[Rfam]
Nucleotides: 128
Base pairs, nucleotide, nucleotide: 006123007122008121009120011118012117013116020070021069022068023067072107073106074105075103076102079101080100081099086094
Number, partner (000 for none) and nucleotide at each position: 001000c002000g003000u004000c005000c006123c007122c008121g009120c010000a011118c012117g013116g014000g015000a016000g017000a018000g019000a020070c021069c022068u023067c024000c025000a026000g027000g028000c029000c030000g031000g032000c033000a034000c035000g036000g037000u038000c039000c040000a041000c042000c043000g044000c045000u046000c047000g048000c049000g050000c051000g052000g053000c054000g055000g056000g057000g058000c059000g060000g061000c062000c063000a064000c065000c066000g067023g068022a069021g070020g071000c072107g073106c074105c075103g076102a077000a078000g079101g080100a081099g082000c083000a084000a085000a086094u087000c088000c089000u090000c091000c092000c093000c094086g095000g096000a097000a098000a099081c100080u101079c102076u103075c104000a105074g106073g107072c108000a109000g110000c111000c112000c113000g114000u115000a116013c117012c118011g119000g120009g121008u122007g123006g124000g125000g126000c127000g128000g